[Rfam]
This 89-nucleotide RNA sequence from Trifolium medium belongs to the Rfam family "Small nucleolar RNA Z221/R21b". The match comes from Rfam's covariance-model search (82 bits). Rfam classes the family as a C/D-box small nucleolar RNA. The family's consensus secondary structure was predicted with WAR. Lineage of the source: Eukaryota > eudicotyledons > Pentapetalae > rosids > Trifolium. The literature on the family includes a 2003 paper in Nucleic Acids Res by Chen et al., "The high diversity of snoRNAs in plants: identification and comparative study of 120 snoRNA genes from Oryza sativa".
RNA sequence: AGGCUGUGAUGAGUCAUAGAGAUAGUCAUGCACCACUCUGAUUUUACAGUGCUGAUAAUUUUUCUCAUACCCAUUAUAUUUCUGAGCCU
Number, nucleotide and partner (000 for none) at each position: 001a089002g088003g087004c086005u000006g000007u000008g000009a000010u000011g000012a000013g000014u000015c000016a000017u000018a000019g000020a000021g000022a000023u000024a000025g000026u000027c000028a000029u000030g000031c000032a000033c000034c000035a000036c000037u000038c000039u000040g000041a000042u000043u000044u000045u000046a000047c000048a000049g000050u000051g000052c000053u000054g000055a000056u000057a000058a000059u000060u000061u000062u000063u000064c000065u000066c000067a000068u000069a000070c000071c000072c000073a000074u000075u000076a000077u000078a000079u000080u000081u000082c000083u000084g000085a000086g004087c003088c002089u001